[Rfam]
Nucleotides: 172
Base pairs, nucleotide, nucleotide: 004171005170006169007168008167009166010165011164014161015160016159017158018157019156020155027148049125050124052122053121054120058116059115060114061113066108
Number, partner (000 for none) and nucleotide at each position: 001000a002000g003000a004171g005170a006169g007168c008167u009166u010165u011164c012000u013000u014161u015160a016159g017158u018157c019156c020155a021000c022000a023000c024000a025000u026000g027148g028000g029000g030000a031000a032000c033000g034000a035000u036000a037000g038000g039000g040000u041000u042000c043000a044000a045000u046000u047000u048000g049125c050124u051000g052122c053121c054120g055000a056000c057000u058116c059115a060114u061113u062000c063000a064000u065000c066108c067000a068000a069000a070000u071000g072000u073000u074000g075000a076000g077000g078000u079000c080000u081000u082000g083000a084000u085000a086000a087000u088000c089000g090000a091000g092000u093000g094000c095000c096000a097000c098000c099000u100000c101000a102000g103000c104000a105000a106000c107000u108066g109000a110000g111000u112000g113061a114060a115059u116058g117000a118000a119000g120054c121053g122052g123000g124050a125049g126000u127000a128000c129000a130000a131000g132000u133000u134000g135000a136000g137000u138000c139000u140000u141000g142000a143000g144000c145000u146000u147000c148027c149000u150000g151000u152000a153000c154000u155020u156019g157018g158017a159016c160015u161014g162000a163000a164011g165010g166009g167008a168007g169006c170005u171004c172000c